[Rfam]
RNA sequence: AUGCGUGGUUGACAACGAGAGAGAGCACGCCGGUCCGCAAUCAUGCGGGCGGCCAUGGUUGUGUGUACCAGUGUGCUCUUUCUCGUCGUCACCUGUCU
Number, nucleotide and partner (000 for none) at each position: 001a000002u000003g000004c000005g000006u000007g000008g000009u000010u091011g090012a089013c088014a000015a000016c085017g084018a000019g000020a081021g080022a000023g078024a000025g076026c075027a074028c073029g072030c071031c000032g069033g068034u067035c000036c000037g000038c000039a000040a000041u000042c000043a000044u000045g000046c000047g000048g000049g000050c000051g000052g000053c000054c000055a000056u000057g000058g000059u000060u000061g000062u000063g000064u000065g000066u000067a034068c033069c032070a000071g030072u029073g028074u027075g026076c025077u000078c023079u000080u021081u020082c000083u000084c017085g016086u000087c000088g013089u012090c011091a010092c000093c000094u000095g000096u000097c000098u000
A member of the RNA family "MIR535 microRNA precursor family" from Musa acuminata, 98 nucleotides long. The base pairs follow the family's consensus structure, which was predicted with RNAalifold. The family has 20 seed sequences and 544 matches in Rfam 15.1. Rfam links the family to the GO terms miRNA-mediated post-transcriptional gene silencing and RISC complex.